Shown here is a 52-nucleotide RNA from Rousettus aegyptiacus, a member of the family "mir-1302 microRNA precursor family". Pairs were carried over by alignment from the consensus structure, which was predicted with WAR. Rfam links the family to the GO terms miRNA-mediated post-transcriptional gene silencing and RISC complex. Rfam 15.1 lists 16,160 matches to the family in 135 species.

RNA sequence: CUUUUAGUGUAACUAUGUCCCAUGCACUAUUUGGGACAUAAUUACACUAAAA
Dot-bracket structure: .....(((((((.(((.(((((........).)))).))).)))))))....